Rfam assigns this 102-nucleotide sequence from Clostridium argentinense to the family "Purine riboswitch aptamer". Rfam describes the family as follows. Riboswitches are metabolite binding domains within certain messenger RNAs that serve as precision sensors for their corresponding targets. Allosteric rearrangement of mRNA structure is mediated by ligand binding, and this results in modulation of gene expression. A class of riboswitches that selectively recognises guanine and becomes saturated at concentrations as low as 5 nM. In Bacillus subtilis, this mRNA motif is located on at least five separate transcriptional units that together encode 17 genes that are mostly involved in purine transport and purine nucleotide biosynthesis. It has also been shown that some members of this family are specific for adenine instead. A search with the family's covariance model found it, with a score of 75 bits.
RNA sequence: UUUUUUAAAAUAUUAGUGGCUCAUAUAAGUUUAAUGAUAGGGAUUAAAUGUUUCUACUUGGUAACCUUGAAUUACCAGACUAUGGGUUUUAAUAAACUUGAA
Numbered sequence: 001u002u003u004u005u006u007a008a009a010a011u012a013u014u015a016g017u018g019g020c021u022c023a024u025a026u027a028a029g030u031u032u033a034a035u036g037a038u039a040g041g042g043a044u045u046a047a048a049u050g051u052u053u054c055u056a057c058u059u060g061g062u063a064a065c066c067u068u069g070a071a072u073u074a075c076c077a078g079a080c081u082a083u084g085g086g087u088u089u090u091a092a093u094a095a096a097c098u099u100g101a102a
Stems, first nucleotide, its partner, number of pairs: 018088008029049007058078007